The record is a 407-nucleotide RNA sequence from Pseudomonas oryzihabitans, which matches "Pseudomonas sRNA CrcZ" in Rfam.
NCBI's taxonomy places the organism under Bacteria, Pseudomonadota, Gammaproteobacteria, Pseudomonadales, Pseudomonas.
It is annotated as a small RNA.
The base pairs follow the family's consensus structure, which was predicted with WAR.
On this family, see Livny et al., Nucleic Acids Res 2006: "Identification of 17 Pseudomonas aeruginosa sRNAs and prediction of sRNA-encoding genes in 10 diverse pathogens using the bioinformatic tool sRNAPredict2".
RNA sequence: ACAACAACAAUAAAAACGUAUCUCACUCCAUAACAAAAACAAGACGUAGCGACUCCAGCACAACAAGAACAAGCAGGCGGAGGCGUAGCUAACUGAUCAUUUUGGAGAAGAGUCGUCUUGCGGGAUGCUCCGCGCGAUGUCAGGACAGAGAACAACAAAACUGCCCCAAGGCAGCACCCGUACCAGGCACUGCAGGAAUGAUCCUGACGACCUCAGCUUCCAAAGUAAUCCGUUUGCUCUUGGCUCUAGACUUCAGAGCCUUUCCGGCGGCCGGUAUCCGCACGGGACAGACCACACAAGAAAAACAAAAGGUCUGGAUAAACAAUAAAAACAAAGCACGUACCACUUUGGGGGGGAGCUUCGGCUCCCCCAGUGCCUUUGACAGCCUCCCCUCCCUCGUUCAAGAU
Numbered sequence: 001a002c003a004a005c006a007a008c009a010a011u012a013a014a015a016a017c018g019u020a021u022c023u024c025a026c027u028c029c030a031u032a033a034c035a036a037a038a039a040c041a042a043g044a045c046g047u048a049g050c051g052a053c054u055c056c057a058g059c060a061c062a063a064c065a066a067g068a069a070c071a072a073g074c075a076g077g078c079g080g081a082g083g084c085g086u087a088g089c090u091a092a093c094u095g096a097u098c099a100u101u102u103u104g105g106a107g108a109a110g111a112g113u114c115g116u117c118u119u120g121c122g123g124g125a126u127g128c129u130c131c132g133c134g135c136g137a138u139g140u141c142a143g144g145a146c147a148g149a150g151a152a153c154a155a156c157a158a159a160a161c162u163g164c165c166c167c168a169a170g171g172c173a174g175c176a177c178c179c180g181u182a183c184c185a186g187g188c189a190c191u192g193c194a195g196g197a198a199u200g201a202u203c204c205u206g207a208c209g210a211c212c213u214c215a216g217c218u219u220c221c222a223a224a225g226u227a228a229u230c231c232g233u234u235u236g237c238u239c240u241u242g243g244c245u246c247u248a249g250a251c252u253u254c255a256g257a258g259c260c261u262u263u264c265c266g267g268c269g270g271c272c273g274g275u276a277u278c279c280g281c282a283c284g285g286g287a288c289a290g291a292c293c294a295c296a297c298a299a300g301a302a303a304a305a306c307a308a309a310a311g312g313u314c315u316g317g318a319u320a321a322a323c324a325a326u327a328a329a330a331a332c333a334a335a336g337c338a339c340g341u342a343c344c345a346c347u348u349u350g351g352g353g354g355g356g357a358g359c360u361u362c363g364g365c366u367c368c369c370c371c372a373g374u375g376c377c378u379u380u381g382a383c384a385g386c387c388u389c390c391c392c393u394c395c396c397u398c399g400u401u402c403a404a405g406a407u
Base pairs, nucleotide, nucleotide: 050085051084053082054081055080056079100225101224102223103222104221115217116216138189139188140187141186143184144183161174162173163172164171165170243259244258245257246256247255284389285388286387288385290315293312334379335378336377351374352371353370354369355368356367357366358365359364